Rfam assigns this 107-nucleotide sequence from Zavarzinia compransoris to the family "SAM-I/IV (S-adenosyl methionine) riboswitch aptamer". Rfam 15.1 lists 567 matches to the family in 508 species. Pairs were carried over by alignment from the consensus structure, which is taken from published work. It scores 57 bits against the family's covariance model. NCBI's taxonomy places the organism under Bacteria, Pseudomonadati, Alphaproteobacteria, Zavarziniaceae, Zavarzinia. For this family Rfam cites "The aptamer core of SAM-IV riboswitches mimics the ligand-binding site of SAM-I riboswitches" (Weinberg et al., RNA, 2008). The family is grouped with related families in Rfam's "SAM clan". Gene Ontology terms of the family: regulation of gene expression and S-adenosylmethionine metabolic process.
RNA sequence: GAUCGACAUCAAGAGUUGGGGUGACGCCCAACGCCAACCUGCUUUCCGGGCAAGGUGGUGCUCCCGCGUGGGAGGAUGUGGCCGAACCGGCAACCAAACGGAUCAAG
Numbered sequence: 001g002a003u004c005g006a007c008a009u010c011a012a013g014a015g016u017u018g019g020g021g022u023g024a025c026g027c028c029c030a031a032c033g034c035c036a037a038c039c040u041g042c043u044u045u046c047c048g049g050g051c052a053a054g055g056u057g058g059u060g061c062u063c064c065c066g067c068g069u070g071g072g073a074g075g076a077u078g079u080g081g082c083c084g085a086a087c088c089g090g091c092a093a094c095c096a097a098a099c100g101g102a103u104c105a106a107g
Stems, first nucleotide, its partner, number of pairs: 006079005015032006033059003038055003041051003047101001081091004